[Rfam]
RNA sequence: GCUGAGCAAGUAGCGAUUGCUUGUAACCCGAACAGGGGCAAUAAGGUAGUGUGGAUGUCAAUUGUGGUGCAUGCGCCUGGGUCUAGUGCUACAAACUGUGGACCACCCAUUCCAAGUUGUGUAGUGGGUUUUGGAUGCCUUGGCGAAAGCCUUUGCAUCCCAACACCUAAAGUGGCGGACAUUGCGUGAGGCUGGCUUCACAGAGCAGCGAGUACCGCCCGCCACCAGCGGUGGAAGGAUAAUGAGUCGCUAUGCUAUAGGCCAAUUGAGGCACAUGUGCCCUCUCUGGUAGACCACUAUCUUU
Dot-bracket structure: (((((((((.......))))))....((......)))))...(((((((((.(..((.(.(..(.((.(((((.(((((.(((((..((...(....((((..((.((.(((((.((((.((.((.(..((.((((((...(((....)))...)))))).))..)(....).(((((....(.(((....(((......)))....))).)..))))).)).))))))..)))))))....))..)))))..))..)))))).....)))).))))).)).)...).)))..)))))))))).

This 304-nucleotide RNA sequence from Zea mays belongs to the Rfam family "Plant signal recognition particle RNA". The family has 63 seed sequences and 4,988 matches in Rfam 15.1. Lineage of the source: Eukaryota > Poales > Andropogonodae > Andropogoneae > Zea. Rfam classes the family as a non-coding RNA gene. The family's consensus secondary structure is taken from published work.